[Rfam]
RNA sequence: CCGACGUGGUCAUCCAGCGAGGUCACUCUCCUGGCUCUGUCCUGGUGGCGUUAUGGGAGCGUAGCGCUCAGCUGAGACGUACAAUCCCGUUCCACAGCGUCGGAGACAAAGCUCUGACCCCGGCCUCCGGUCGGUGGGGACGAGCGUCCUGCAUAUUCCUACAUCUUCCCAGAGUCCUUUGGGCCGUGACUGGGGGGCUAAACCAUGCAGUGCACAACA
Numbered sequence: 001c002c003g004a005c006g007u008g009g010u011c012a013u014c015c016a017g018c019g020a021g022g023u024c025a026c027u028c029u030c031c032u033g034g035c036u037c038u039g040u041c042c043u044g045g046u047g048g049c050g051u052u053a054u055g056g057g058a059g060c061g062u063a064g065c066g067c068u069c070a071g072c073u074g075a076g077a078c079g080u081a082c083a084a085u086c087c088c089g090u091u092c093c094a095c096a097g098c099g100u101c102g103g104a105g106a107c108a109a110a111g112c113u114c115u116g117a118c119c120c121c122g123g124c125c126u127c128c129g130g131u132c133g134g135u136g137g138g139g140a141c142g143a144g145c146g147u148c149c150u151g152c153a154u155a156u157u158c159c160u161a162c163a164u165c166u167u168c169c170c171a172g173a174g175u176c177c178u179u180u181g182g183g184c185c186g187u188g189a190c191u192g193g194g195g196g197g198c199u200a201a202a203c204c205a206u207g208c209a210g211u212g213c214a215c216a217a218c219a
Base pairs, nucleotide, nucleotide: 001103002102003101004100005099006098007097008042009041011039012038014034015033016032019028020027021026045095046094047093048092055088056087057086058085059082061080062079065074149210150209151208152207153206154205165197166196167195168194169193170192174184175183176182177181
The family of this 219-nucleotide RNA sequence from Gasterosteus aculeatus is "Small nucleolar RNA SNORA73 family". Rfam's curators put it in the seed alignment. Lineage of the source: Eukaryota > Deuterostomia > Vertebrata > Perciformes > Gasterosteus. Rfam links the family to the GO terms RNA processing and nucleolus. It is annotated as an H/ACA-box small nucleolar RNA. The literature on the family includes a 1996 paper in RNA by Enright et al., "5'ETS rRNA processing facilitated by four small RNAs: U14, E3, U17, and U3". Rfam describes the family as follows. U17 (SNORA73A and SNORA73B) also known as E1 belongs to the H/ACA class of small nucleolar RNAs (snoRNAs). Vertebrate U17 is intron-encoded and ranges in length from 200-230 nucleotides, longer than most snoRNAs. It is one of the most abundant snoRNAs in human cells and is essential for the cleavage of pre-rRNA within the 5' external transcribed spacer (ETS). This cleavage leads to the formation of 18S rRNA. Regions of the U17 RNA are complementary to rRNA and act as guides for RNA/RNA interactions, although these regions do not seem to be well conserved between organisms. The family's consensus secondary structure is taken from published work. The family has 66 seed sequences and 2,326 matches in Rfam 15.1.